[Rfam]
RNA sequence: ACCGCUUUGUGCCGAGCGUGAAGCUACUGCGAGAUUUGAGUCCAUUUCCCGCAGUAGCUUC
Numbered sequence: 001a002c003c004g005c006u007u008u009g010u011g012c013c014g015a016g017c018g019u020g021a022a023g024c025u026a027c028u029g030c031g032a033g034a035u036u037u038g039a040g041u042c043c044a045u046u047u048c049c050c051g052c053a054g055u056a057g058c059u060u061c
Stems, first nucleotide, its partner, number of pairs: 020061012033047001